[Rfam]
RNA sequence: CAGACCGUAUGACGACUUCUUCUGAAACUGUUUACAGCGGGAGAGGUCUGAGCUUAUUAAGCGUG
Numbered sequence: 001c002a003g004a005c006c007g008u009a010u011g012a013c014g015a016c017u018u019c020u021u022c023u024g025a026a027a028c029u030g031u032u033u034a035c036a037g038c039g040g041g042a043g044a045g046g047u048c049u050g051a052g053c054u055u056a057u058u059a060a061g062c063g064u065g
Stems, first nucleotide, its partner, number of pairs: 004064002014048010028037003

The record is a 65-nucleotide RNA sequence from Mizuhopecten yessoensis, which matches "Selenocysteine insertion sequence 1" in Rfam. The family's RNA type in Rfam is cis-regulatory element.